[Rfam]
RNA sequence: ACCGCGCAUCAAGAGUUGAGCGGACGCUCAACGCCAACCUGCUUUCCCGAGCAAGGUGGCGUCCCGAAGGGGGAUGUGGCCGGACCGGCAAACAAACGGGGUUCG
Numbered sequence: 001a002c003c004g005c006g007c008a009u010c011a012a013g014a015g016u017u018g019a020g021c022g023g024a025c026g027c028u029c030a031a032c033g034c035c036a037a038c039c040u041g042c043u044u045u046c047c048c049g050a051g052c053a054a055g056g057u058g059g060c061g062u063c064c065c066g067a068a069g070g071g072g073g074a075u076g077u078g079g080c081c082g083g084a085c086c087g088g089c090a091a092a093c094a095a096a097c098g099g100g101g102u103u104c105g
Stems, first nucleotide, its partner, number of pairs: 006077005015032001017030005033060003038056003041052003045101005079089004
Shown here is a 105-nucleotide RNA from Azospirillum sp. TSH58, a member of the family "SAM-I/IV (S-adenosyl methionine) riboswitch aptamer".
Clan: SAM clan.
The match comes from Rfam's covariance-model search (62 bits).